Notes:
The record is a 185-nucleotide sequence from Paecilomyces variotii, which matches "Small nucleolar RNA snR80" in Rfam. The family's RNA type in Rfam is H/ACA-box small nucleolar RNA. For this family Rfam cites "Genome-wide searching for pseudouridylation guide snoRNAs: analysis of the Saccharomyces cerevisiae genome" (Schattner et al., Nucleic Acids Res, 2004). The match comes from Rfam's covariance-model search (44 bits). The organism belongs to Paecilomyces variotii, within Eukaryota. Clan: SNORA28 clan.
RNA sequence: CGACCUUUGCCACACUCUGGCCCUUACCGUCCUUUCCCAUCUGGGAUCGGUGAUUUUCCUCCACGGUAUCGGCUUAUUUUGGUGCAAAGAAGAUCAACUUCAGCCCAUUACUCACCGCGGUAUCUUCAGGAGGGGGACUACGUUCUUCUCCCGUGGAUACAGUGGUCCAUCUUUCGGGCCAACAU
Numbered sequence: 001c002g003a004c005c006u007u008u009g010c011c012a013c014a015c016u017c018u019g020g021c022c023c024u025u026a027c028c029g030u031c032c033u034u035u036c037c038c039a040u041c042u043g044g045g046a047u048c049g050g051u052g053a054u055u056u057u058c059c060u061c062c063a064c065g066g067u068a069u070c071g072g073c074u075u076a077u078u079u080u081g082g083u084g085c086a087a088a089g090a091a092g093a094u095c096a097a098c099u100u101c102a103g104c105c106c107a108u109u110a111c112u113c114a115c116c117g118c119g120g121u122a123u124c125u126u127c128a129g130g131a132g133g134g135g136g137a138c139u140a141c142g143u144u145c146u147u148c149u150c151c152c153g154u155g156g157a158u159a160c161a162g163u164g165g166u167c168c169a170u171c172u173u174u175c176g177g178g179c180c181a182a183c184a185u
Stems, first nucleotide, its partner, number of pairs: 007087003019074004025068006103179003115165004120160006